[Rfam]
Nucleotides: 275
Stems, first nucleotide, its partner, number of pairs: 006030003013025002036046002093137003098134002103130001104128001107124005143154004163206003166202002213252004218248002222240006263275003
Number, partner (000 for none) and nucleotide at each position: 001000c002000g003000g004000c005000g006030c007029c008028c009000a010000a011000a012000c013025g014024u015000g016000g017000g018000c019000c020000u021000g022000a023000a024014a025013c026000g027000a028008g029007g030006g031000c032000u033000c034000c035000g036046c037045u038000g039000a040000g041000g042000a043000a044000g045037a046036g047000g048000a049000c050000g051000c052000c053000a054000a055000a056000g057000g058000a059000c060000g061000g062000u063000c064000g065000a066000u067000c068000g069000c070000u071000a072000a073000c074000g075000a076000a077000g078000g079000a080000c081000a082000a083000a084000a085000g086000g087000a088000g089000u090000c091000a092000a093137a094136c095135u096000c097000u098134u099133c100000c101000g102000a103130u104128c105000a106000c107124c108123g109122c110121g111120g112000g113000a114000a115000c116000c117000u118000g119000g120111c121110c122109g123108c124107g125000u126000c127000a128104g129000g130103a131000u132000c133099g134098a135095a136094g137093u138000a139000a140000u141000g142000a143154c144153c145152g146151u147000c148000g149000a150000a151146a152145u153144g154143g155000a156000c157000a158000a159000g160000a161000a162000u163206u164205a165204a166202g167201c168000c169000a170000a171000c172000a173000u174000c175000a176000a177000a178000u179000a180000u181000a182000u183000u184000g185000a186000g187000g188000a189000c190000a191000c192000a193000u194000u195000a196000a197000a198000a199000g200000a201167g202166c203000u204165u205164u206163a207000a208000a209000g210000a211000u212000a213252g214251a215250a216249g217000c218248g219247a220000u221000a222240a223239a224238g225237u226236u227235a228000a229000a230000c231000g232000g233000u234000a235227u236226g237225a238224u239223u240222u241000g242000u243000u244000u245000a246000a247219u248218u249216u250215u251214u252213u253000g254000a255000u256000u257000u258000g259000g260000u261000a262000a263275a264274a265273g266000a267000c268000a269000u270000u271000c272000c273265c274264u275263u
Shown here is a 275-nucleotide RNA sequence from Macaca nemestrina, a member of the family "Mason-Pfizer monkey virus packaging signal". The family's consensus secondary structure was predicted with PFOLD. Its family is annotated with viral genome packaging in the Gene Ontology. This family represents a group of sequences that are related to the Mason-Pfizer monkey virus (MPMV) packaging signal. The packaging signal is located in the 5' UTR and is required for specific RNA encapsidation.